[Rfam]
RNA sequence: ACCACCCGCGCGGGAGAGACCACCUGGCCGAACCAGGCGGCGCCGAAGGGGCAACUCCUCCCCGGAACCUCUCAGGCAAAAGGACCACGCGGGCAGG
Numbered sequence: 001a002c003c004a005c006c007c008g009c010g011c012g013g014g015a016g017a018g019a020c021c022a023c024c025u026g027g028c029c030g031a032a033c034c035a036g037g038c039g040g041c042g043c044c045g046a047a048g049g050g051g052c053a054a055c056u057c058c059u060c061c062c063c064g065g066a067a068c069c070u071c072u073c074a075g076g077c078a079a080a081a082g083g084a085c086c087a088c089g090c091g092g093g094c095a096g097g
Stems, first nucleotide, its partner, number of pairs: 006092005012086002020040002023037003042077003045073002049071003055065002
The family of this 97-nucleotide RNA sequence from Polymorphospora rubra is "Glycine riboswitch aptamer". Rfam describes the family as follows. This family represents the bacterial glycine riboswitch. Glycine riboswitches usually consist of two metabolite-binding aptamers domains with similar structures in tandem. The aptamers cooperatively bind glycine to regulate the expression of downstream genes. In Bacillus subtilis, this riboswitch is found upstream of the gcvT operon which controls glycine degradation. NCBI's taxonomy places the organism under Bacteria, Bacillati, Actinomycetes, Micromonosporales, Polymorphospora.